A member of the RNA family "JUMPstart RNA" from a Plautia stali symbiont, 38 nucleotides long. It is annotated as a cis-regulatory element. The family's consensus secondary structure is taken from published work. Rfam 15.1 lists 288 matches to the family in 230 species. The source organism's lineage runs through Bacteria, Pseudomonadati, Gammaproteobacteria, Enterobacterales and Enterobacteriaceae.
RNA sequence: CAGCACGCUGGUCGCUGUAAGCCAGGGGCGGUAGCUUG
Numbered sequence: 001c002a003g004c005a006c007g008c009u010g011g012u013c014g015c016u017g018u019a020a021g022c023c024a025g026g027g028g029c030g031g032u033a034g035c036u037u038g
Base pairs, nucleotide, nucleotide: 008025009024010023011022012021